RNA sequence: UGUUAGGUUAGUGUAAAAGUAACUGUGGUUUUCGCCAUUAAAAGUAAUGGCGAAAACCGCAAUUACUUUUGCACCAACCUAAUA
Numbered sequence: 001u002g003u004u005a006g007g008u009u010a011g012u013g014u015a016a017a018a019g020u021a022a023c024u025g026u027g028g029u030u031u032u033c034g035c036c037a038u039u040a041a042a043a044g045u046a047a048u049g050g051c052g053a054a055a056a057c058c059g060c061a062a063u064u065a066c067u068u069u070u071g072c073a074c075c076a077a078c079c080u081a082a083u084a
Base pairs, nucleotide, nucleotide: 001084002083003082004081005080006079007078008077009076011074012073013072014071015070016069017068018067019066020065021064022063024061025060026059027058028057029056030055031054032053033052034051035050036049037048038047039046040045
Dot-bracket structure: (((((((((.((((((((((((.(((((((((((((((((....))))))))))))))))).)))))))))))).)))))))))

Shown here is an 84-nucleotide RNA sequence from Nomascus leucogenys, a member of the family "mir-548 microRNA precursor family".
Gene Ontology terms of the family: miRNA-mediated post-transcriptional gene silencing and RISC complex.
Lineage of the source: Eukaryota > Gnathostomata > Teleostomi > Euarchontoglires > Nomascus.
A reference for the family is Witten et al. (2010), "Ultra-high throughput sequencing-based small RNA discovery and discrete statistical biomarker analysis in a collection of cervical tumours and matched controls", BMC Biol.
The family has 11 seed sequences and 3,009 matches in Rfam 15.1.